FMN riboswitch aptamer (RFN element): a 147-nucleotide RNA sequence from Bacillus sp. FJAT-50079. Rfam's curators write: The RFN element is a highly conserved domain that is found frequently in the 5'-untranslated regions of prokaryotic mRNAs that encode for flavin mononucleotide (FMN) biosynthesis and transport proteins.
RNA sequence: AUUUUCCUUCGGGGCAGGGUGCAAUUCCCUACCGGCGGUGAUGAGAGAAGCUCUCUUAGCCCGUGACCCGGCUCAAUCUUAAUUGGGACGGUGGAUUCGGUGAAAUUCCGAGGCCGACAGUGAAAGUCUGGAUGAGAGAAGGAAACA
Numbered sequence: 001a002u003u004u005u006c007c008u009u010c011g012g013g014g015c016a017g018g019g020u021g022c023a024a025u026u027c028c029c030u031a032c033c034g035g036c037g038g039u040g041a042u043g044a045g046a047g048a049a050g051c052u053c054u055c056u057u058a059g060c061c062c063g064u065g066a067c068c069c070g071g072c073u074c075a076a077u078c079u080u081a082a083u084u085g086g087g088a089c090g091g092u093g094g095a096u097u098c099g100g101u102g103a104a105a106u107u108c109c110g111a112g113g114c115c116g117a118c119a120g121u122g123a124a125a126g127u128c129u130g131g132a133u134g135a136g137a138g139a140a141g142g143a144a145a146c147a
Stems, first nucleotide, its partner, number of pairs: 003145008017029003031127002033116002035064004059114002068091002096112005118130003